Rfam assigns this 111-nucleotide sequence from Genlisea aurea to the family "Small nucleolar RNA Z103".
RNA sequence: AUGGAUGUGAUGAUUUUUUCCCCAGAUGAUUCGAAUCUGAAAUUACUGAGCGCUCUUUUGUGUAUUUUUUUCCCUUGAGGAGAAAAAUCCAAGCCAGAUGUUCUGAUCCGU
Numbered sequence: 001a002u003g004g005a006u007g008u009g010a011u012g013a014u015u016u017u018u019u020c021c022c023c024a025g026a027u028g029a030u031u032c033g034a035a036u037c038u039g040a041a042a043u044u045a046c047u048g049a050g051c052g053c054u055c056u057u058u059u060g061u062g063u064a065u066u067u068u069u070u071u072c073c074c075u076u077g078a079g080g081a082g083a084a085a086a087a088u089c090c091a092a093g094c095c096a097g098a099u100g101u102u103c104u105g106a107u108c109c110g111u
Stems, first nucleotide, its partner, number of pairs: 001111005
Pairs were carried over by alignment from the consensus structure, which was predicted with PFOLD. Rfam links the family to the GO terms nucleolus and RNA processing.